[Rfam]
RNA sequence: UCAGGGUGAGGUAGUAAGUUGUAUUGUUUUAGGGGGCAGGGAUAUUUUGCUCCUAUUAGGUGAUAACUAUACAGCUUACUGCCUUCCCAGA
Numbered sequence: 001u002c003a004g005g006g007u008g009a010g011g012u013a014g015u016a017a018g019u020u021g022u023a024u025u026g027u028u029u030u031a032g033g034g035g036g037c038a039g040g041g042a043u044a045u046u047u048u049g050c051u052c053c054u055a056u057u058a059g060g061u062g063a064u065a066a067c068u069a070u071a072c073a074g075c076u077u078a079c080u081g082c083c084u085u086c087c088c089a090g091a
Stems, first nucleotide, its partner, number of pairs: 001091002004088003008085017026067002032053004
Dot-bracket structure: ((.(((.(((((((((((((((((.((....((((..............))))............)).)))))))))))))))))))).))
RNA: let-7 microRNA precursor family
Organism: Aquarana catesbeiana